[Rfam]
This 267-nucleotide sequence from Paenactinomyces guangxiensis belongs to the Rfam family "Bacterial large signal recognition particle RNA". The family's consensus secondary structure is taken from published work. The match comes from Rfam's covariance-model search (208 bits). NCBI's taxonomy places the organism under Bacteria, Bacilli, Caryophanales, Thermoactinomycetaceae, Paenactinomyces.

RNA sequence: CCGCGCUAGAUGGGGAGGUAGCGGUGCCCUGUAGCCCGUAAUCCGCUAUAACGGGGUUGAAUUCCUAUCCGAGGCCCUUUCUGUGUGAGGUCUGGUCUGUUCAGACAGUGUUGACGAUCGGGUCCUGCGCAACGAGUGCUUCUGAACCGUGUCAGGUCCUGACGGAAGCAGCACUAAGGGAGAUUUCUCGUGUGCCGCAGGGGUGCCUGGUCUGAGUUGUCUGUACAGAGUCCGCUCAGGCAGAUGGUGUCGGAGAUAGGUGCGCGG
Numbered sequence: 001c002c003g004c005g006c007u008a009g010a011u012g013g014g015g016a017g018g019u020a021g022c023g024g025u026g027c028c029c030u031g032u033a034g035c036c037c038g039u040a041a042u043c044c045g046c047u048a049u050a051a052c053g054g055g056g057u058u059g060a061a062u063u064c065c066u067a068u069c070c071g072a073g074g075c076c077c078u079u080u081c082u083g084u085g086u087g088a089g090g091u092c093u094g095g096u097c098u099g100u101u102c103a104g105a106c107a108g109u110g111u112u113g114a115c116g117a118u119c120g121g122g123u124c125c126u127g128c129g130c131a132a133c134g135a136g137u138g139c140u141u142c143u144g145a146a147c148c149g150u151g152u153c154a155g156g157u158c159c160u161g162a163c164g165g166a167a168g169c170a171g172c173a174c175u176a177a178g179g180g181a182g183a184u185u186u187c188u189c190g191u192g193u194g195c196c197g198c199a200g201g202g203g204u205g206c207c208u209g210g211u212c213u214g215a216g217u218u219g220u221c222u223g224u225a226c227a228g229a230g231u232c233c234g235c236u237c238a239g240g241c242a243g244a245u246g247g248u249g250u251c252g253g254a255g256a257u258a259g260g261u262g263c264g265c266g267g
Base pairs, nucleotide, nucleotide: 001267002266003265004264005263006262009058010057011056012030013029014028015027017025019023035055036054037053038052039051064260065259066258067257068256069255073251074250075249077247080244081243082242083241084240086238087237088236089235093234094233096229097228098227099226100225104221105220107218108217109216116212117211118210119209120208121207122206123205124201125200126199127198128197129196130192131191133190134189135188136187139182140181141180142179143178149174150173151172152171157166158165159164